Shown here is an 88-nucleotide sequence from Corallincola holothuriorum, a member of the family "t44 RNA".
RNA sequence: UUGUGAUACAAACUACCACACACACAUUCCGUCACAUGCUUCGGGGUGCCUGAAAAGGUCGAUUGCAUGGGGGAUGUGGAGGCUUAAC
Numbered sequence: 001u002u003g004u005g006a007u008a009c010a011a012a013c014u015a016c017c018a019c020a021c022a023c024a025c026a027u028u029c030c031g032u033c034a035c036a037u038g039c040u041u042c043g044g045g046g047u048g049c050c051u052g053a054a055a056a057g058g059u060c061g062a063u064u065g066c067a068u069g070g071g072g073g074a075u076g077u078g079g080a081g082g083c084u085u086a087a088c
Base pairs, nucleotide, nucleotide: 023078024077025076026075027074028073029072030071035069036068037067038066039065041062042061043060048059049058050057051056
The organism belongs to Corallincola, within Bacteria.
By type it is a small RNA.